[Rfam]
RNA sequence: UUUUUUUCUCAGCACACACUUUGACUAUCUUGUCAGUACUAAUCAAGUAGCACUACUGCAUUAGUGCUCUUAUGUACUUUGUGCAUUACUGCUAGUCUCCAUGAAUAAUACUCC
Numbered sequence: 001u002u003u004u005u006u007u008c009u010c011a012g013c014a015c016a017c018a019c020u021u022u023g024a025c026u027a028u029c030u031u032g033u034c035a036g037u038a039c040u041a042a043u044c045a046a047g048u049a050g051c052a053c054u055a056c057u058g059c060a061u062u063a064g065u066g067c068u069c070u071u072a073u074g075u076a077c078u079u080u081g082u083g084c085a086u087u088a089c090u091g092c093u094a095g096u097c098u099c100c101a102u103g104a105a106u107a108a109u110a111c112u113c114c
Stems, first nucleotide, its partner, number of pairs: 005105003009101001012097001017091002022035004036067002039064004072086005
This 114-nucleotide RNA sequence from Mandrillus leucophaeus belongs to the Rfam family "Mitochondrial DNA control region secondary structure A". It is annotated as an antisense RNA. For this family Rfam cites "Evidence for variable selective pressures at a large secondary structure of the human mitochondrial DNA control region" (Pereira et al., Mol Biol Evol, 2008). It scores 40 bits against the family's covariance model. The base pairs follow the family's consensus structure, which is taken from published work.